[Rfam]
RNA: Lysine riboswitch aptamer
Organism: Bacillus sp. B-jedd
RNA sequence: AGUGUAGGUAGAGGCGCGGGCUUCAUGAGUAAAAAUCCGGAGAAUAAUGGAUUCGACGAUGGAUUUUGAAAGGGGAUACCGCCGAAGCAGUGAAUGGCCCAUUCCAUCCACUUGCUGGUCCUGUAUUGAAUAAAUGCAGGAUUGUCAGGGUACACCACCCUGGAGGGCUAUCUCACAU
Numbered sequence: 001a002g003u004g005u006a007g008g009u010a011g012a013g014g015c016g017c018g019g020g021c022u023u024c025a026u027g028a029g030u031a032a033a034a035a036u037c038c039g040g041a042g043a044a045u046a047a048u049g050g051a052u053u054c055g056a057c058g059a060u061g062g063a064u065u066u067u068g069a070a071a072g073g074g075g076a077u078a079c080c081g082c083c084g085a086a087g088c089a090g091u092g093a094a095u096g097g098c099c100c101a102u103u104c105c106a107u108c109c110a111c112u113u114g115c116u117g118g119u120c121c122u123g124u125a126u127u128g129a130a131u132a133a134a135u136g137c138a139g140g141a142u143u144g145u146c147a148g149g150g151u152a153c154a155c156c157a158c159c160c161u162g163g164a165g166g167g168c169u170a171u172c173u174c175a176c177a178u
Stems, first nucleotide, its partner, number of pairs: 006173006016082004022076003032067008086116004090111003094107004117143011145163007